[Rfam]
RNA sequence: CGACACCAGGUCAGGCGAGAUUACCCGCUUAGUUUAAGCAUAUCAAUAAGCGGUGGAAAAGAAACUUACAAGGAUUCCCUUAGUAACGGGGAGCUAAUCGGGAACAGCCCAUCCUUAGAAUCGAGCGGCUCCAUCGUCUGAAUUGUCUUGUGGAGAAGCGUCCUCAGCGGAGGAUCAGUCCCAUGUCCCCUGGAAGGGGGUGCCAAAGAGGGUGACAGCCCCGUUGUCCCUGGACGCUGCCACACGACGAGGCACCGUCUACGAGUAGGCCUGUUUGGGAAUGCAACCCAAAUCGGGUGGUGAAUUUCAUUCUAGGCUAAAUACAAGAGAGAGACCGAUAAUGAACAAGUACCACGAGGGAAAGAUUAAAAGGACUUUGAAAAGAGAGUCAAAUAGUGCUUGAAAUUAUCGGGAGGGAAAAA
Numbered sequence: 001c002g003a004c005a006c007c008a009g010g011u012c013a014g015g016c017g018a019g020a021u022u023a024c025c026c027g028c029u030u031a032g033u034u035u036a037a038g039c040a041u042a043u044c045a046a047u048a049a050g051c052g053g054u055g056g057a058a059a060a061g062a063a064a065c066u067u068a069c070a071a072g073g074a075u076u077c078c079c080u081u082a083g084u085a086a087c088g089g090g091g092a093g094c095u096a097a098u099c100g101g102g103a104a105c106a107g108c109c110c111a112u113c114c115u116u117a118g119a120a121u122c123g124a125g126c127g128g129c130u131c132c133a134u135c136g137u138c139u140g141a142a143u144u145g146u147c148u149u150g151u152g153g154a155g156a157a158g159c160g161u162c163c164u165c166a167g168c169g170g171a172g173g174a175u176c177a178g179u180c181c182c183a184u185g186u187c188c189c190c191u192g193g194a195a196g197g198g199g200g201u202g203c204c205a206a207a208g209a210g211g212g213u214g215a216c217a218g219c220c221c222c223g224u225u226g227u228c229c230c231u232g233g234a235c236g237c238u239g240c241c242a243c244a245c246g247a248c249g250a251g252g253c254a255c256c257g258u259c260u261a262c263g264a265g266u267a268g269g270c271c272u273g274u275u276u277g278g279g280a281a282u283g284c285a286a287c288c289c290a291a292a293u294c295g296g297g298u299g300g301u302g303a304a305u306u307u308c309a310u311u312c313u314a315g316g317c318u319a320a321a322u323a324c325a326a327g328a329g330a331g332a333g334a335c336c337g338a339u340a341a342u343g344a345a346c347a348a349g350u351a352c353c354a355c356g357a358g359g360g361a362a363a364g365a366u367u368a369a370a371a372g373g374a375c376u377u378u379g380a381a382a383a384g385a386g387a388g389u390c391a392a393a394u395a396g397u398g399c400u401u402g403a404a405a406u407u408a409u410c411g412g413g414a415g416g417g418a419a420a421a422a
Base pairs, nucleotide, nucleotide: 024055025053026052027051028050029049035042036041065072066071076103077102078101079100087093106318107317108316109315112150118144119143121141122140123139125137126136127135155259156258158255160253162252163251164250165249167243169241170240172238173237175233176232177231178230185201187200188199189198190197204208211221212220268289269288272285273284274283295312296311297310298309299308352359353358375386376385377384378383
Notes:
The family of this 422-nucleotide part of an RNA from Solanum tuberosum is "Eukaryotic large subunit ribosomal RNA". Rfam's curators put it in the seed alignment. Taxonomically the source falls in Solanum (Eukaryota, Streptophyta, Streptophytina, Embryophyta).